Shown here is a 53-nucleotide RNA, a member of the family "Glutamine riboswitch aptamer (glnA leader)".
It is one of the family's seed sequences.
The literature on the family includes a 2011 paper in RNA Biol by Ames and Breaker, "Bacterial aptamers that selectively bind glutamine".
Pairs were carried over by alignment from the consensus structure, which is taken from published work.
[Rfam]
RNA sequence: UUCGUUCAACCUAGAAAUAGGUCGGAAGUAGGGUAAUACCGAAGGAACGCGCC
Numbered sequence: 001u002u003c004g005u006u007c008a009a010c011c012u013a014g015a016a017a018u019a020g021g022u023c024g025g026a027a028g029u030a031g032g033g034u035a036a037u038a039c040c041g042a043a044g045g046a047a048c049g050c051g052c053c
Stems, first nucleotide, its partner, number of pairs: 003049005009022005025050001031040002